[Rfam]
RNA sequence: CGACGGAGUGCGGAUACGGACUCUGUCCGGGGCGGGAGCUCUGGUGUACUUCCCCGACAUCAGAGCACUGCUCCGGUCAGGGCCCUAUGCGCACCCCGGAGGGCA
Numbered sequence: 001c002g003a004c005g006g007a008g009u010g011c012g013g014a015u016a017c018g019g020a021c022u023c024u025g026u027c028c029g030g031g032g033c034g035g036g037a038g039c040u041c042u043g044g045u046g047u048a049c050u051u052c053c054c055c056g057a058c059a060u061c062a063g064a065g066c067a068c069u070g071c072u073c074c075g076g077u078c079a080g081g082g083c084c085c086u087a088u089g090c091g092c093a094c095c096c097c098g099g100a101g102g103g104c105a
Stems, first nucleotide, its partner, number of pairs: 010092003014088003018085002021082005027076009038066010